This 109-nucleotide RNA from Bacillus gobiensis belongs to the Rfam family "TPP riboswitch aptamer (THI element)". The family's consensus secondary structure is taken from published work. Taxonomically the source falls in Bacillus (Bacteria, Bacillati, Bacilli, Bacillaceae). It scores 87 bits against the family's covariance model.
[Rfam]
RNA sequence: AUUAUCCGCUAGGGGGACCUUUUUAGAAGGUUGAGAUUAAAGUAGGACUUUAAGACCCUUGGAACCUGAUCUGGUUUAUACCAGCGUAGGGAAGUGGAGUUGCGGGAUC
Dot-bracket structure: .....(((((((((..(((((.....)))))......(((((.....)))))...)))).....((((..((((......))))..))))..)))))............